[Rfam]
RNA: Small nucleolar RNA SNORA55
Organism: Corythaixoides concolor
RNA sequence: GCACCAAAUCUUUCCCAUUCCUUACUGCGCAGUGUGGGCUUGGGGACACAUGGUGCUUACAAAAAAGCAGAGUAAAUCCAGAUAGGUGACUUUUCAUUGAGUACCUGUCUCUACACUUCUGCAACAGCC
Numbered sequence: 001g002c003a004c005c006a007a008a009u010c011u012u013u014c015c016c017a018u019u020c021c022u023u024a025c026u027g028c029g030c031a032g033u034g035u036g037g038g039c040u041u042g043g044g045g046a047c048a049c050a051u052g053g054u055g056c057u058u059a060c061a062a063a064a065a066a067g068c069a070g071a072g073u074a075a076a077u078c079c080a081g082a083u084a085g086g087u088g089a090c091u092u093u094u095c096a097u098u099g100a101g102u103a104c105c106u107g108u109c110u111c112u113a114c115a116c117u118u119c120u121g122c123a124a125c126a127g128c129c
Stems, first nucleotide, its partner, number of pairs: 001056005012046006020038002067122006080110008